[Rfam]
This 113-nucleotide sequence from Peterkaempfera bronchialis belongs to the Rfam family "TPP riboswitch aptamer (THI element)". A search with the family's covariance model found it, with a score of 62 bits.

RNA sequence: GGGCGUACACGCGGGAGCCCGGCGCACCGGGCUGAGAGGGAGGCUGGAGCGGCCUCCGACCGUCGGAACCUGAUCCGGGUCAUGCCGGCGAAGGGAGAGUCGCAGCCUUGGUA
Numbered sequence: 001g002g003g004c005g006u007a008c009a010c011g012c013g014g015g016a017g018c019c020c021g022g023c024g025c026a027c028c029g030g031g032c033u034g035a036g037a038g039g040g041a042g043g044c045u046g047g048a049g050c051g052g053c054c055u056c057c058g059a060c061c062g063u064c065g066g067a068a069c070c071u072g073a074u075c076c077g078g079g080u081c082a083u084g085c086c087g088g089c090g091a092a093g094g095g096a097g098a099g100u101c102g103c104a105g106c107c108u109u110g111g112u113a
Stems, first nucleotide, its partner, number of pairs: 007100002010097001011063004017032005039057008069094003075088004